[Rfam]
RNA sequence: CGCAGAUACGGAGAUAUGGUCCCGGAUACAAUAACGGGCAAGAUCGUGGGCGGAGUGUGUUCACUGAGCGGCGUGCUCGUGAUCGCUUUGCCCGUUCCAGUCAUUGUGUCGAAC
Numbered sequence: 001c002g003c004a005g006a007u008a009c010g011g012a013g014a015u016a017u018g019g020u021c022c023c024g025g026a027u028a029c030a031a032u033a034a035c036g037g038g039c040a041a042g043a044u045c046g047u048g049g050g051c052g053g054a055g056u057g058u059g060u061u062c063a064c065u066g067a068g069c070g071g072c073g074u075g076c077u078c079g080u081g082a083u084c085g086c087u088u089u090g091c092c093c094g095u096u097c098c099a100g101u102c103a104u105u106g107u108g109u110c111g112a113a114c
Stems, first nucleotide, its partner, number of pairs: 005110001007108005013102003018097002021094001037077004050062001
Rfam assigns this 114-nucleotide RNA sequence from Tropilaelaps mercedesae to the family "Potassium channel RNA editing signal". NCBI's taxonomy places the organism under Eukaryota, Metazoa, Bilateria, Panarthropoda, Tropilaelaps. Rfam links the family to the GO term adenosine to inosine editing. The family's consensus secondary structure is taken from published work.